Bacterial small subunit ribosomal RNA: a 588-nucleotide part of an RNA from Allobosea sp. AAP35.

RNA sequence: UGACGGGGGCCCGCACAAGCGGUGGAGCAUGUGGUUUAAUUCGAAGCAACGCGCAGAACCUUACCAGCUUUUGACAUGUCCGGUUUGAUCGACAGAGAUGUCUUUCUUCAGUUCGGCUGGCCGGAACACAGGUGCUGCAUGGCUGUCGUCAGCUCGUGUCGUGAGAUGUUGGGUUAAGUCCCGCAACGAGCGCAACCCUCGCCCCUAGUUGCCAUCAUUCAGUUGGGAACUCUAGGGGGACUGCCGGUGAUAAGCCGCGAGGAAGGUGGGGAUGACGUCAAGUCCUCAUGGCCCUUACAGGCUGGGCUACACACGUGCUACAAUGGCGGUGACAAUGGGCAGCGAAGGAGCGAUCCGGUGCUAAUCCCAAAAAGCCGUCUCAGUUCAGAUUGCACUCUGCAACUCGAGUGCAUGAAGGUGGAAUCGCUAGUAAUCGUGGAUCAGCAUGCCACGGUGAAUACGUUCCCGGGCCUUGUACACACCGCCCGUCACACCAUGGGAGUUGGGUUUACCCGAAGGCGUCGCGCUAACCGCAAGGAGGCAGGCGACCACGGUAGGCUCAGCGACUGGGGUGAAGUCGUAACAAGG
Numbered sequence: 001u002g003a004c005g006g007g008g009g010c011c012c013g014c015a016c017a018a019g020c021g022g023u024g025g026a027g028c029a030u031g032u033g034g035u036u037u038a039a040u041u042c043g044a045a046g047c048a049a050c051g052c053g054c055a056g057a058a059c060c061u062u063a064c065c066a067g068c069u070u071u072u073g074a075c076a077u078g079u080c081c082g083g084u085u086u087g088a089u090c091g092a093c094a095g096a097g098a099u100g101u102c103u104u105u106c107u108u109c110a111g112u113u114c115g116g117c118u119g120g121c122c123g124g125a126a127c128a129c130a131g132g133u134g135c136u137g138c139a140u141g142g143c144u145g146u147c148g149u150c151a152g153c154u155c156g157u158g159u160c161g162u163g164a165g166a167u168g169u170u171g172g173g174u175u176a177a178g179u180c181c182c183g184c185a186a187c188g189a190g191c192g193c194a195a196c197c198c199u200c201g202c203c204c205c206u207a208g209u210u211g212c213c214a215u216c217a218u219u220c221a222g223u224u225g226g227g228a229a230c231u232c233u234a235g236g237g238g239g240a241c242u243g244c245c246g247g248u249g250a251u252a253a254g255c256c257g258c259g260a261g262g263a264a265g266g267u268g269g270g271g272a273u274g275a276c277g278u279c280a281a282g283u284c285c286u287c288a289u290g291g292c293c294c295u296u297a298c299a300g301g302c303u304g305g306g307c308u309a310c311a312c313a314c315g316u317g318c319u320a321c322a323a324u325g326g327c328g329g330u331g332a333c334a335a336u337g338g339g340c341a342g343c344g345a346a347g348g349a350g351c352g353a354u355c356c357g358g359u360g361c362u363a364a365u366c367c368c369a370a371a372a373a374g375c376c377g378u379c380u381c382a383g384u385u386c387a388g389a390u391u392g393c394a395c396u397c398u399g400c401a402a403c404u405c406g407a408g409u410g411c412a413u414g415a416a417g418g419u420g421g422a423a424u425c426g427c428u429a430g431u432a433a434u435c436g437u438g439g440a441u442c443a444g445c446a447u448g449c450c451a452c453g454g455u456g457a458a459u460a461c462g463u464u465c466c467c468g469g470g471c472c473u474u475g476u477a478c479a480c481a482c483c484g485c486c487c488g489u490c491a492c493a494c495c496a497u498g499g500g501a502g503u504u505g506g507g508u509u510u511a512c513c514c515g516a517a518g519g520c521g522u523c524g525c526g527c528u529a530a531c532c533g534c535a536a537g538g539a540g541g542c543a544g545g546c547g548a549c550c551a552c553g554g555u556a557g558g559c560u561c562a563g564c565g566a567c568u569g570g571g572g573u574g575a576a577g578u579c580g581u582a583a584c585a586a587g588g
Base pairs, nucleotide, nucleotide: 001479002478003476004475005474007473008472009471010470011469012468013467015463016462019427020426021425022424023423024321026319027318028317029316030315031314032313033312034310035309040055042053043052064305065304066303067302068301069300070299077128078127079125080124081123082122083121088105091102092101093100094099108120109119110118111117131294132293134292135291136290137289140288141287142283143282144281145279147277148276152191153190154189155188156187157186158167159166160165170183171182172181173180197271198270199269200268202238203237204236205235206234207233208232212227213226216225217224241262242261244259245257246256247255248254325379326378327377328376329375330374337368338367339366342361343360347356348355349354386417391412392411393410394409395408396407397406433455434454435453436452437451438450439449482587484584487580488579492574493573494572495571497569498568499567502564503563504562505561506560507559508558509557510556511555512554513553518549520547521546522545523544526542527541528540531538532537
Its family is annotated with ribosome and structural constituent of ribosome in the Gene Ontology.